[Rfam]
This 53-nucleotide RNA sequence from Clostridium sp. CAG:43 belongs to the Rfam family "Streptococcus sRNA SpF59 (ldcC RNA)". Lineage of the source: Bacteria > Bacillati > Eubacteriales > Clostridiaceae > Clostridium. For this family Rfam cites "Control of virulence by small RNAs in Streptococcus pneumoniae" (Mann et al., PLoS Pathog, 2012). Rfam's curators put it in the seed alignment.
RNA sequence: UGACCACCUGUGAAACAGGGAAUGGCCAUACGGACAGCCGGGUCAAAUGCCGA
Numbered sequence: 001u002g003a004c005c006a007c008c009u010g011u012g013a014a015a016c017a018g019g020g021a022a023u024g025g026c027c028a029u030a031c032g033g034a035c036a037g038c039c040g041g042g043u044c045a046a047a048u049g050c051c052g053a
Base pairs, nucleotide, nucleotide: 001045002044003043004042005041007019008018009017010016